[Rfam]
The record is a 210-nucleotide RNA from Pseudomonas sp. M30-35, which matches "sRNA regulator of biofilms A" in Rfam. A reference for the family is Taylor et al. (2017), "A novel small RNA is important for biofilm formation and pathogenicity in Pseudomonas aeruginosa", PLoS One.
RNA sequence: AUCAGGGGCUCUGGAAAGAGCUUCCGGGUUGAUCUCAGGCUUACCGCUCGAGUCGCCCGUGUUGUAAAAGCCCACAAGGCAGAUCGACGAGAUUGCGACUGGAACGAAGUUGUCCUGAGGGACGGGGAAGCGCUAUCAACCGGCAUGACCGUAACAGACACUGCAUCGCCCAAGACAUCCACGAGUCAAACGGCGAAAAAUGACCCGCUC
Numbered sequence: 001a002u003c004a005g006g007g008g009c010u011c012u013g014g015a016a017a018g019a020g021c022u023u024c025c026g027g028g029u030u031g032a033u034c035u036c037a038g039g040c041u042u043a044c045c046g047c048u049c050g051a052g053u054c055g056c057c058c059g060u061g062u063u064g065u066a067a068a069a070g071c072c073c074a075c076a077a078g079g080c081a082g083a084u085c086g087a088c089g090a091g092a093u094u095g096c097g098a099c100u101g102g103a104a105c106g107a108a109g110u111u112g113u114c115c116u117g118a119g120g121g122a123c124g125g126g127g128a129a130g131c132g133c134u135a136u137c138a139a140c141c142g143g144c145a146u147g148a149c150c151g152u153a154a155c156a157g158a159c160a161c162u163g164c165a166u167c168g169c170c171c172a173a174g175a176c177a178u179c180c181a182c183g184a185g186u187c188a189a190a191c192g193g194c195g196a197a198a199a200a201u202g203a204c205c206c207g208c209u210c
Stems, first nucleotide, its partner, number of pairs: 005024008028056002031053001035051002039047001041046001058151002061149005070080003082137002086134001088132002115127002159163001167195004174187003
Rfam's curators write: Important for biofilm formation and pathogenicity.